[Rfam]
A member of the RNA family "Purine riboswitch aptamer" from Paenisporosarcina sp. HGH0030, 102 nucleotides long. Rfam 15.1 lists 4,097 matches to the family in 1,411 species. For this family Rfam cites "Riboswitches Control Fundamental Biochemical Pathways in Bacillus subtilis and Other Bacteria" (Mandal et al., Cell, 2003).
RNA sequence: AUUGUAAUUAAAUACUGUCGUCGUAUAAAGUCGGGAAUAUGGCCCGAAAGUUUCUACCGAGUUACCGUAAAUGACUCGACUACGAUUUAGAAAGGCGGACCG
Number, nucleotide and partner (000 for none) at each position: 001a000002u000003u000004g000005u000006a000007a000008u000009u000010a000011a000012a000013u000014a000015c000016u000017g000018u000019c000020g086021u085022c084023g083024u082025a081026u000027a000028a000029a000030g000031u047032c046033g045034g044035g043036a000037a000038u000039a000040u000041g000042g000043c035044c034045c033046g032047a031048a000049a000050g000051u000052u000053u000054c000055u000056a000057c000058c078059g077060a076061g075062u074063u073064a072065c000066c000067g000068u000069a000070a000071a000072u064073g063074a062075c061076u060077c059078g058079a000080c000081u025082a024083c023084g022085a021086u020087u000088u000089a000090g000091a000092a000093a000094g000095g000096c000097g000098g000099a000100c000101c000102g000

Riboswitches are metabolite binding domains within certain messenger RNAs that serve as precision sensors for their corresponding targets. Allosteric rearrangement of mRNA structure is mediated by ligand binding, and this results in modulation of gene expression. A class of riboswitches that selectively recognises guanine and becomes saturated at concentrations as low as 5 nM. In Bacillus subtilis, this mRNA motif is located on at least five separate transcriptional units that together encode 17 genes that are mostly involved in purine transport and purine nucleotide biosynthesis. It has also been shown that some members of this family are specific for adenine instead. NCBI's taxonomy places the organism under Bacteria, Bacillati, Bacillota, Bacilli, Paenisporosarcina.